[Rfam]
RNA sequence: ACGUUUUUUUCAUAGAGAUUUAGAUUUAAGGUUAGAAGAAUUGUGGAAGUCGUGAGACUUCCCUUUUUUUCAUCUUAACGAUUACUAUCCUCCAUUAUUAGAAUGCUUCUUUUUCAUUUUAAAAGCAGGAAGUAAUGUAGAAUAAGUAAUCCUAAAAAGCCUUCUUCGUGAGAAGAGGCUUUUUU
Numbered sequence: 001a002c003g004u005u006u007u008u009u010u011c012a013u014a015g016a017g018a019u020u021u022a023g024a025u026u027u028a029a030g031g032u033u034a035g036a037a038g039a040a041u042u043g044u045g046g047a048a049g050u051c052g053u054g055a056g057a058c059u060u061c062c063c064u065u066u067u068u069u070u071c072a073u074c075u076u077a078a079c080g081a082u083u084a085c086u087a088u089c090c091u092c093c094a095u096u097a098u099u100a101g102a103a104u105g106c107u108u109c110u111u112u113u114u115c116a117u118u119u120u121a122a123a124a125g126c127a128g129g130a131a132g133u134a135a136u137g138u139a140g141a142a143u144a145a146g147u148a149a150u151c152c153u154a155a156a157a158a159g160c161c162u163u164c165u166u167c168g169u170g171a172g173a174a175g176a177g178g179c180u181u182u183u184u185u
Base pairs, nucleotide, nucleotide: 026078027077028076029075030074031073032072035071036070037069038068039067040066045062046061047060048059049058050057051056080152081150082149083148084147086144087143088142090140091139093137094136095135096134097133098132099131154184155183156182157181158180159179160178161177162176164175165174166173167172
RNA: Bacteroides sRNA BTnc231
Organism: Bacteroides caccae